[Rfam]
RNA: Group II catalytic intron D1-D4-1
Organism: Petrotoga mobilis
RNA sequence: CAACCCAUACAGCAAUGUAUGGCUGAAUCUUGAGAAGUCAGCAGAAGUCAUAGUACUCAUUGAGAGAUGAGGAAGGAC
Numbered sequence: 001c002a003a004c005c006c007a008u009a010c011a012g013c014a015a016u017g018u019a020u021g022g023c024u025g026a027a028u029c030u031u032g033a034g035a036a037g038u039c040a041g042c043a044g045a046a047g048u049c050a051u052a053g054u055a056c057u058c059a060u061u062g063a064g065a066g067a068u069g070a071g072g073a074a075g076g077a078c
Stems, first nucleotide, its partner, number of pairs: 001025002005022007038045002047078003056071006